Source information:
Rfam assigns this 307-nucleotide sequence from Dissostichus mawsoni to the family "Nuclear RNase P". Clan: RNaseP clan. For this family Rfam cites "Structural implications of novel diversity in eucaryal RNase P RNA" (Marquez et al., RNA, 2005). By type it is a ribozyme. Pairs were carried over by alignment from the consensus structure, which is taken from published work. Taxonomically the source falls in Dissostichus (Eukaryota, Clupeocephala, Euteleosteomorpha, Eupercaria). The match comes from Rfam's covariance-model search (226 bits).
[Rfam]
RNA sequence: GUGGGCGGAAGCUCAUUGUAGAGGUCACAUGCUGAGUGCUCGUCACUCCACCAAUCACCUCGGGGAAGGUCUGAGACAAGAGCCAAUAGUUACCCUAGCAGGGUAUCACCUGAUUCGGGUGAGCGAGCGAACAGAAAAUAUGGGUUAACGUGAACAGUUGUAGCAGGAGAAACCGUGUGGCGCAGUUUCAGCGCCUCACGGUGGAUGUGACGUUCACUGACUUGGAAUCGCUCGUGGCUAGCAAAUGAGUGCGAUGUAUGAGGUGGAGCACAGCUCCAGAACCCAAUUCAGACUACUCUCCUCCCAC
Number, nucleotide and partner (000 for none) at each position: 001g307002u306003g305004g304005g000006c000007g301008g300009a299010a000011g000012c262013u261014c260015a259016u258017u000018g000019u000020a000021g061022a060023g059024g058025u000026c000027a000028c000029a000030u000031g000032c000033u000034g048035a047036g046037u045038g044039c000040u000041c000042g000043u000044c038045a037046c036047u035048c034049c000050a000051c000052c000053a000054a000055u000056c000057a000058c024059c023060u022061c021062g000063g000064g000065g000066a000067a000068g000069g000070u000071c291072u290073g289074a288075g287076a000077c000078a000079a000080g000081a239082g238083c237084c236085a000086a000087u000088a000089g000090u000091u105092a104093c103094c102095c101096u000097a000098g000099c000100a000101g095102g094103g093104u092105a091106u122107c121108a120109c119110c118111u117112g000113a000114u000115u000116c000117g111118g110119g109120u108121g107122a106123g235124c234125g233126a232127g231128c230129g229130a000131a000132c000133a000134g000135a000136a000137a000138a000139u000140a000141u000142g000143g221144g000145u000146u000147a000148a000149c000150g000151u000152g000153a000154a000155c000156a000157g000158u000159u000160g000161u000162a000163g000164c000165a000166g000167g000168a000169g000170a000171a000172a000173c000174c000175g000176u000177g000178u000179g000180g000181c000182g000183c000184a000185g000186u000187u000188u000189c000190a000191g000192c000193g000194c000195c000196u000197c000198a000199c000200g000201g000202u000203g000204g000205a000206u000207g000208u000209g000210a000211c000212g000213u000214u000215c000216a000217c000218u000219g000220a000221c143222u000223u000224g000225g000226a000227a000228u000229c129230g128231c127232u126233c125234g124235u123236g084237g083238c082239u081240a000241g000242c000243a000244a000245a000246u000247g000248a000249g000250u000251g000252c000253g000254a000255u000256g000257u000258a016259u015260g014261a013262g012263g000264u278265g277266g276267a275268g274269c273270a000271c000272a000273g269274c268275u267276c266277c265278a264279g000280a000281a000282c000283c000284c000285a000286a000287u075288u074289c073290a072291g071292a000293c000294u000295a000296c000297u000298c000299u009300c008301c007302u000303c000304c004305c003306a002307c001